[Rfam]
RNA sequence: UUAUAGGACGUUUUUGCUCUUGAACUGUUUUGUCCCUGUCUGUCAAAGAAAAAUUUAUUUAUCGACAGAGAGGGACAAAACAGUUCCAUAGCAAAAACGUCUACAAA
Numbered sequence: 001u002u003a004u005a006g007g008a009c010g011u012u013u014u015u016g017c018u019c020u021u022g023a024a025c026u027g028u029u030u031u032g033u034c035c036c037u038g039u040c041u042g043u044c045a046a047a048g049a050a051a052a053a054u055u056u057a058u059u060u061a062u063c064g065a066c067a068g069a070g071a072g073g074g075a076c077a078a079a080a081c082a083g084u085u086c087c088a089u090a091g092c093a094a095a096a097a098c099g100u101c102u103a104c105a106a107a
Stems, first nucleotide, its partner, number of pairs: 001106002004103003011097008020088001022086007029069006049059002052056001